[Rfam]
RNA: c-di-GMP-I riboswitch aptamer
Organism: Desulfonema magnum
Nucleotides: 079
Stems, first nucleotide, its partner, number of pairs: 012037002018031005040073004045069001047067001048064003
Number, partner (000 for none) and nucleotide at each position: 001000a002000c003000a004000a005000g006000a007000c008000a009000g010000a011000g012037c013036c014000a015000a016000a017000c018031c019030c020029g021028u022027c023000g024000u025000g026000a027022g028021a029020c030019g031018g032000u033000g034000a035000c036013g037012g038000a039000a040073a041072g042071c043070c044000a045069c046000g047067g048064g049063u050062c051000u052000u053000a054000a055000a056000u057000g058000a059000a060000a061000a062050g063049g064048c065000a066000u067047c068000g069045g070043g071042g072041u073040u074000g075000c076000c077000u078000u079000u